[Rfam]
RNA sequence: AAGGGGUCUCCUCUAAUGCCUGGCAUUGUGUCACAAAAUGCCUGGCCUCGCUUGUAGACCAGAUCAACCUCCAAAUCUCUUAUUAUCCUUGUGCUAGUGACCACUUUACUGUCCUAUGCACAUGAGAAACGUAAAAGAACAUUG
Numbered sequence: 001a002a003g004g005g006g007u008c009u010c011c012u013c014u015a016a017u018g019c020c021u022g023g024c025a026u027u028g029u030g031u032c033a034c035a036a037a038a039u040g041c042c043u044g045g046c047c048u049c050g051c052u053u054g055u056a057g058a059c060c061a062g063a064u065c066a067a068c069c070u071c072c073a074a075a076u077c078u079c080u081u082a083u084u085a086u087c088c089u090u091g092u093g094c095u096a097g098u099g100a101c102c103a104c105u106u107u108a109c110u111g112u113c114c115u116a117u118g119c120a121c122a123u124g125a126g127a128a129a130c131g132u133a134a135a136a137g138a139a140c141a142u143u144g
Stems, first nucleotide, its partner, number of pairs: 005060005019045002022042005027036001076138003080134004088126006
The family of this 144-nucleotide RNA from Drosophila rhopaloa is "Small nucleolar RNA psi28S-1192". The family has 15 seed sequences and 81 matches in Rfam 15.1. By type it is an H/ACA-box small nucleolar RNA. Its family is annotated with nucleolus and RNA processing in the Gene Ontology. Pairs were carried over by alignment from the consensus structure, which was predicted with ILM. Rfam's curators write: psi28S-1192 is a member of the H/ACA class of snoRNA. This family is responsible for guiding the modification of uridine 1192 to pseudouridine in Drosophila 28S rRNA.